The record is a 74-nucleotide sequence from Litomosoides sigmodontis, which matches "mir-84 microRNA precursor family" in Rfam. Its family is annotated with miRNA-mediated post-transcriptional gene silencing and RISC complex in the Gene Ontology.
RNA sequence: GAGGCUGAUGAGGUAGUUUAUAAAGCUGCGAGAGUAGAUUAAGCUCGCAGAUUUUAAGCUACCUCUACAACCUU
Dot-bracket structure: ..((.....((((((((....(((..(((.................)))..)))...)))))))).....))..
Pairs were carried over by alignment from the consensus structure, which was predicted with RNAalifold.